MIR2593 microRNA precursor family: a 115-nucleotide sequence from Trifolium medium. The match comes from Rfam's covariance-model search (100 bits).

RNA sequence: AUAUAAGUAAAAAUUCAUUUUUCAGGUUCAUUGAAUAACUGAUGUUUCUGAUCCAUGAUAUGAACCACAUACAUCAGUUAUUCAAUGAACCUGAAAAAAGAAUCUUUGCUUAUAU
Numbered sequence: 001a002u003a004u005a006a007g008u009a010a011a012a013a014u015u016c017a018u019u020u021u022u023c024a025g026g027u028u029c030a031u032u033g034a035a036u037a038a039c040u041g042a043u044g045u046u047u048c049u050g051a052u053c054c055a056u057g058a059u060a061u062g063a064a065c066c067a068c069a070u071a072c073a074u075c076a077g078u079u080a081u082u083c084a085a086u087g088a089a090c091c092u093g094a095a096a097a098a099a100g101a102a103u104c105u106u107u108g109c110u111u112a113u114a115u
Base pairs, nucleotide, nucleotide: 002114003113004112005111006110007109009107010106011105013103015101016100018098019097020096021095022094023093024092025091027089028088029087030086031085032084033083034082035081036080037079038078039077040076041075042074043073044072049067050066052064
The family's consensus secondary structure was predicted with RNAalifold. NCBI's taxonomy places the organism under Eukaryota, Streptophyta, rosids, Hologalegina, Trifolium. Rfam links the family to the GO terms miRNA-mediated post-transcriptional gene silencing and RISC complex.